[Rfam]
Rfam assigns this 63-nucleotide sequence from Ramlibacter sp. to the family "Betaproteobacteria toxic small RNA". About the family: Overexpression in amino aid rich medium attenuates growth, suggesting role in repressing amino acid intake and metabolism.

RNA sequence: UGUCUCCUCCACCCUCUGAAAAGGUGGAUUCAGCCCCGAAUCGCAAGGUUCGGGGCUUUUUUC
Numbered sequence: 001u002g003u004c005u006c007c008u009c010c011a012c013c014c015u016c017u018g019a020a021a022a023g024g025u026g027g028a029u030u031c032a033g034c035c036c037c038g039a040a041u042c043g044c045a046a047g048g049u050u051c052g053g054g055g056c057u058u059u060u061u062u063c
Stems, first nucleotide, its partner, number of pairs: 008028006033056008